[Rfam]
RNA: Nuclear RNase P
Organism: Babesia microti
RNA sequence: AGAGUUGUGAGCUUGGAGUUCUCCGUAUACAGACGGUUAUACAACAUAUGGGGGGGAAGGUCUGAGAUGUCACGUAUUUAUACCGAAUGGUACACUCAUGAAAUGGGUGAAUCACGAACCAGAAACGCUUGCAUCAAUAAAUCUUUCUUGCAAAUGAAAUUAUCGUGAUAGACAAGCACUACGAGUCAAAUCUCCAAGAAUGAUGAAACAUUCAACUCAAUUCAGACUAUUACAUAACCCU
Numbered sequence: 001a002g003a004g005u006u007g008u009g010a011g012c013u014u015g016g017a018g019u020u021c022u023c024c025g026u027a028u029a030c031a032g033a034c035g036g037u038u039a040u041a042c043a044a045c046a047u048a049u050g051g052g053g054g055g056g057a058a059g060g061u062c063u064g065a066g067a068u069g070u071c072a073c074g075u076a077u078u079u080a081u082a083c084c085g086a087a088u089g090g091u092a093c094a095c096u097c098a099u100g101a102a103a104u105g106g107g108u109g110a111a112u113c114a115c116g117a118a119c120c121a122g123a124a125a126c127g128c129u130u131g132c133a134u135c136a137a138u139a140a141a142u143c144u145u146u147c148u149u150g151c152a153a154a155u156g157a158a159a160u161u162a163u164c165g166u167g168a169u170a171g172a173c174a175a176g177c178a179c180u181a182c183g184a185g186u187c188a189a190a191u192c193u194c195c196a197a198g199a200a201u202g203a204u205g206a207a208a209c210a211u212u213c214a215a216c217u218c219a220a221u222u223c224a225g226a227c228u229a230u231u232a233c234a235u236a237a238c239c240c241u
Stems, first nucleotide, its partner, number of pairs: 001241002004238001007235003012198007021053005062225005068174004081092004094108005111169007129153003200212001